[Rfam]
RNA sequence: AUACUUACCUAUGAUCACCAACAUGGUUUUCCCAAGGGCAAAGCUUAUCCAUUGCACUCCGGACGUGCUGACUUCUAUGAUUUCCCCAAAUGUGGGAAACUCAACUCAUAAUUUGUGGUAGUGGGGGACUGUGUUUGUGCUCUCCCUUG
Numbered sequence: 001a002u003a004c005u006u007a008c009c010u011a012u013g014a015u016c017a018c019c020a021a022c023a024u025g026g027u028u029u030u031c032c033c034a035a036g037g038g039c040a041a042a043g044c045u046u047a048u049c050c051a052u053u054g055c056a057c058u059c060c061g062g063a064c065g066u067g068c069u070g071a072c073u074u075c076u077a078u079g080a081u082u083u084c085c086c087c088a089a090a091u092g093u094g095g096g097a098a099a100c101u102c103a104a105c106u107c108a109u110a111a112u113u114u115g116u117g118g119u120a121g122u123g124g125g126g127g128a129c130u131g132u133g134u135u136u137g138u139g140c141u142c143u144c145c146c147u148u149g
Stems, first nucleotide, its partner, number of pairs: 001030001003028001007027003011024002034076001036075003042069003046065001048063003078103003081099003085095002123148006131140003
RNA: U1 spliceosomal RNA
Organism: Jaculus jaculus